[Rfam]
The family of this 153-nucleotide sequence from Solanum lycopersicum is "U4 spliceosomal RNA". The literature on the family includes a 2018 paper in Cell Res by Zhan et al., "Structures of the human pre-catalytic spliceosome and its precursor spliceosome". Its Rfam clan is "U4 clan". The source organism's lineage runs through Eukaryota, Spermatophyta, Pentapetalae, Solanoideae and Solanum subgen. Lycopersicon.

RNA sequence: AUCUUUGCGCUUGGGGCAAUGACGCAGCUAGUGAGGUUCUAACCGAGGCGCGUCUAUUGCUGGUUGAAAACUAUUUCCAAACCCCCUCUUUGGCCUUGGCUUCUGCUUUGGCCAUAGAGAAUUUUUGAAAAGGCUUCCCUUCUGGGUUAAGCC
Numbered sequence: 001a002u003c004u005u006u007g008c009g010c011u012u013g014g015g016g017c018a019a020u021g022a023c024g025c026a027g028c029u030a031g032u033g034a035g036g037u038u039c040u041a042a043c044c045g046a047g048g049c050g051c052g053u054c055u056a057u058u059g060c061u062g063g064u065u066g067a068a069a070a071c072u073a074u075u076u077c078c079a080a081a082c083c084c085c086c087u088c089u090u091u092g093g094c095c096u097u098g099g100c101u102u103c104u105g106c107u108u109u110g111g112c113c114a115u116a117g118a119g120a121a122u123u124u125u126u127g128a129a130a131a132g133g134c135u136u137c138c139c140u141u142c143u144g145g146g147u148u149a150a151g152c153c
Stems, first nucleotide, its partner, number of pairs: 021054005027049003035044003086119004091114005098107003132153004
Source information: The match comes from Rfam's covariance-model search (112 bits). By type it is a spliceosomal small nuclear RNA.